[Rfam]
RNA sequence: CAACCGCUGGCACAAUACGUGGAUGUUG
Numbered sequence: 001c002a003a004c005c006g007c008u009g010g011c012a013c014a015a016u017a018c019g020u021g022g023a024u025g026u027u028g
Stems, first nucleotide, its partner, number of pairs: 001028004008023001010020002
L19-Flavobacteria ribosomal protein leader: a 28-nucleotide RNA. It is one of the family's seed sequences. The literature on the family includes a 2020 paper in BMC Microbiol by Eckert and Weinberg, "Discovery of 20 novel ribosomal leader candidates in bacteria and archaea". By type it is a cis-regulatory leader.